[Rfam]
Shown here is a 320-nucleotide RNA sequence, a member of the family "FuFi-1 RNA". It is one of the family's seed sequences. The family's RNA type in Rfam is small RNA.

RNA sequence: AGCUGAUGCGUAGGGGCGGCAAUUCUCGGCGGAACCACUAACCGCCUAAAGUGAUGCGCCUUGCCAAGAAGCAGUCUAUGUAAGAGAUUGCGCUUAUCCUAAAGGUGUCAGACGUGAGGCGGAGCCUCGUUAAAAAUCCUAUCUGACAAGCGUUUAGUUCGGAUGAGCCGCGCCAUCGUUAAAAACGCGGAAGCCAACUGGUGGGAGUAAAAUACCAUCUGGGGGCUAAAAGGCUCGUAAGCGCAGGGUAAACUGCAACAAGGUUCGGGAAUAAAAAUUGUGGCAUCGAUAGUCAGUACUUACAUUACUGGCUAUCUUUG
Number, nucleotide and partner (000 for none) at each position: 001a000002g057003c056004u000005g000006a000007u000008g000009c000010g000011u000012a000013g000014g000015g000016g000017c000018g000019g000020c000021a000022a000023u000024u000025c000026u000027c000028g046029g045030c044031g043032g042033a000034a000035c283036c282037a281038c280039u000040a000041a000042c032043c031044g030045c029046c028047u000048a000049a000050a000051g000052u000053g000054a000055u000056g003057c002058g000059c263060c262061u261062u260063g259064c000065c000066a000067a000068g000069a000070a000071g091072c090073a089074g088075u087076c086077u085078a305079u304080g303081u302082a301083a300084g299085a077086g076087a075088u074089u073090g072091c071092g253093c000094u251095u250096a249097u248098c247099c246100u000101a000102a000103a000104g000105g000106u000107g000108u000109c000110a000111g000112a000113c000114g000115u000116g000117a000118g000119g000120c000121g000122g000123a000124g000125c000126c000127u000128c000129g000130u000131u000132a000133a000134a000135a000136a000137u000138c000139c000140u000141a000142u000143c000144u000145g000146a000147c000148a000149a000150g000151c000152g000153u000154u000155u000156a000157g000158u000159u000160c000161g000162g000163a000164u000165g000166a000167g000168c000169c000170g000171c000172g000173c000174c000175a000176u000177c000178g000179u000180u000181a000182a000183a000184a000185a000186c000187g000188c000189g000190g000191a000192a000193g000194c000195c000196a000197a000198c000199u000200g000201g000202u000203g000204g000205g000206a000207g000208u000209a000210a000211a000212a000213u000214a000215c000216c000217a000218u000219c000220u000221g000222g000223g000224g000225g000226c000227u000228a000229a000230a000231a000232g000233g000234c000235u000236c000237g000238u000239a000240a000241g000242c000243g000244c000245a000246g099247g098248g097249u096250a095251a094252a000253c092254u000255g000256c000257a000258a000259c063260a062261a061262g060263g059264u000265u000266c000267g000268g000269g000270a000271a000272u000273a000274a000275a000276a000277a000278u000279u000280g038281u037282g036283g035284c000285a000286u000287c000288g316289a315290u314291a313292g312293u311294c310295a309296g308297u307298a306299c084300u083301u082302a081303c080304a079305u078306u298307a297308c296309u295310g294311g293312c292313u291314a290315u289316c288317u000318u000319u000320g000